[Rfam]
RNA sequence: GCCACGGCUAGGCCGGCCAGCCGAAAGCGGGAAACCUUCUCCCGUCGCCGUGGCUACCUCUGAAGGG
Numbered sequence: 001g002c003c004a005c006g007g008c009u010a011g012g013c014c015g016g017c018c019a020g021c022c023g024a025a026a027g028c029g030g031g032a033a034a035c036c037u038u039c040u041c042c043c044g045u046c047g048c049c050g051u052g053g054c055u056a057c058c059u060c061u062g063a064a065g066g067g
Stems, first nucleotide, its partner, number of pairs: 001054008011022003027045005035067004040062001

This 67-nucleotide sequence from Beta vulgaris belongs to the Rfam family "int-alpA RNA". Acidobacteria (1 example), Planctomycetes (1 example), Proteobacteria. Rfam 15.1 lists 577 matches to the family in 491 species.